[Rfam]
RNA sequence: ACUUGAUAAAGGCAAACCUAUUGAAAAAUAGGGGCGCAAAGUCGCAGAUCUAAGGUAUUUACUAAGAUGGCUGGACUGCCGGG
Numbered sequence: 001a002c003u004u005g006a007u008a009a010a011g012g013c014a015a016a017c018c019u020a021u022u023g024a025a026a027a028a029u030a031g032g033g034g035c036g037c038a039a040a041g042u043c044g045c046a047g048a049u050c051u052a053a054g055g056u057a058u059u060u061a062c063u064a065a066g067a068u069g070g071c072u073g074g075a076c077u078g079c080c081g082g083g
Base pairs, nucleotide, nucleotide: 012037013036017032018031019030020029021028022027040077041076042075043074045073046072047071048068049067050066055062056061
A member of the RNA family "c-di-GMP-I riboswitch aptamer" from Bacillus sp. FJAT-18017, 83 nucleotides long.
It scores 76 bits against the family's covariance model.
The source organism's lineage runs through Bacteria, Bacillota, Bacilli, Bacillaceae and Bacillus.
The family's consensus secondary structure is taken from published work.